A member of the RNA family "mir-9256 microRNA precursor family" from Pipistrellus kuhlii, 67 nucleotides long. The base pairs follow the family's consensus structure, which was predicted with RNAalifold.
RNA sequence: AUUUACACUGAGUGGCCAGAUAAUUAUGAUCUCUGAACGCAUAAUAAUCUGGCCAUUUAGUGUAUUU
Numbered sequence: 001a002u003u004u005a006c007a008c009u010g011a012g013u014g015g016c017c018a019g020a021u022a023a024u025u026a027u028g029a030u031c032u033c034u035g036a037a038c039g040c041a042u043a044a045u046a047a048u049c050u051g052g053c054c055a056u057u058u059a060g061u062g063u064a065u066u067u
Stems, first nucleotide, its partner, number of pairs: 004064014019049003023045006